A member of the RNA family "M-box riboswitch aptamer (ykoK leader)" from Enterococcus rivorum, 169 nucleotides long. NCBI's taxonomy places the organism under Bacteria, Bacillati, Bacillota, Bacilli, Enterococcus. Rfam's curators write: M-box riboswitch, also know as ykoK leader is described as a metaloregulatory RNA that sense divalent metals and function as a genetic control element of genes related to divalent metal transport in bacteria. It was first reported upstream of the B.subtilis ykoK gene and genes with related functions in other bacteria. The pairing is the family consensus, mapped onto this sequence.
[Rfam]
RNA sequence: CUAAAUAAUUGUUAGGUGAGGCUCCUAUUUGGACACAAGCUGCUGCCGCGAAAGAAUCGAGAGACUCUUAGUUGGUUUAACAGAAAUAAUCGUUAAGGUUAUUUUUAAUGUAGCUGAUAAGAAAUUAUCUACGCCCUAUAGUGUUAAAGCUCAACAAUGGAGAAAUUUU
Numbered sequence: 001c002u003a004a005a006u007a008a009u010u011g012u013u014a015g016g017u018g019a020g021g022c023u024c025c026u027a028u029u030u031g032g033a034c035a036c037a038a039g040c041u042g043c044u045g046c047c048g049c050g051a052a053a054g055a056a057u058c059g060a061g062a063g064a065c066u067c068u069u070a071g072u073u074g075g076u077u078u079a080a081c082a083g084a085a086a087u088a089a090u091c092g093u094u095a096a097g098g099u100u101a102u103u104u105u106u107a108a109u110g111u112a113g114c115u116g117a118u119a120a121g122a123a124a125u126u127a128u129c130u131a132c133g134c135c136c137u138a139u140a141g142u143g144u145u146a147a148a149g150c151u152c153a154a155c156a157a158u159g160g161a162g163a164a165a166u167u168u169u
Base pairs, nucleotide, nucleotide: 006164009161010160011155012154013096015151016150017149020145021144022143025141026140027139028138031135032134039114040113041112042111043110045076046075047074048073054067055066057064058063083105084104085103086102089099090098091097116129117128118127